[Rfam]
RNA sequence: AACCAGUGAUCUCACGGUCGCGAUCCGGGGACCCACCGGCAACUGGGGUGAAUCCGCGGUCCACCGCGGUAGGGCGAACUUCCCGCCCGAAUCCGUCAGCUAACCCGGUAGGCGGCGAGGAAGAAGGG
Numbered sequence: 001a002a003c004c005a006g007u008g009a010u011c012u013c014a015c016g017g018u019c020g021c022g023a024u025c026c027g028g029g030g031a032c033c034c035a036c037c038g039g040c041a042a043c044u045g046g047g048g049u050g051a052a053u054c055c056g057c058g059g060u061c062c063a064c065c066g067c068g069g070u071a072g073g074g075c076g077a078a079c080u081u082c083c084c085g086c087c088c089g090a091a092u093c094c095g096u097c098a099g100c101u102a103a104c105c106c107g108g109u110a111g112g113c114g115g116c117g118a119g120g121a122a123g124a125a126g127g128g
Stems, first nucleotide, its partner, number of pairs: 004022001025108005034045002046094003054069004072088004
RNA: c-di-AMP riboswitch aptamer (ydaO/yuaA leader)